[Rfam]
RNA sequence: CAGUAAGGAGGGCUGCAUAAGGCAGCCCGCCUGGGUUCAUUCCAGCUUUGCUG
Numbered sequence: 001c002a003g004u005a006a007g008g009a010g011g012g013c014u015g016c017a018u019a020a021g022g023c024a025g026c027c028c029g030c031c032u033g034g035g036u037u038c039a040u041u042c043c044a045g046c047u048u049u050g051c052u053g
Stems, first nucleotide, its partner, number of pairs: 001053008010028007031045005
Dot-bracket structure: ((((((((.(((((((.....)))))))..(((((.....)))))))))))))